[Rfam]
This 87-nucleotide RNA from Solanum tuberosum belongs to the Rfam family "MIR8024 microRNA precursor family".

RNA sequence: UUGAAGGAAUUUGAAGACAUUAAUUUUCACACUUAGAAGCUUUGAUGAUUUUAGCUUGCAUACUUGGAAGAUUUGAAGACUUCAACU
Numbered sequence: 001u002u003g004a005a006g007g008a009a010u011u012u013g014a015a016g017a018c019a020u021u022a023a024u025u026u027u028c029a030c031a032c033u034u035a036g037a038a039g040c041u042u043u044g045a046u047g048a049u050u051u052u053a054g055c056u057u058g059c060a061u062a063c064u065u066g067g068a069a070g071a072u073u074u075g076a077a078g079a080c081u082u083c084a085a086c087u
Stems, first nucleotide, its partner, number of pairs: 001085006010077006020067003026060001028058002033054006
Dot-bracket structure: ((((((...((((((....(((...(.((...((((((..........))))))..)).)....)))....))))))..))))))..
Its family is annotated with RISC complex and miRNA-mediated post-transcriptional gene silencing in the Gene Ontology.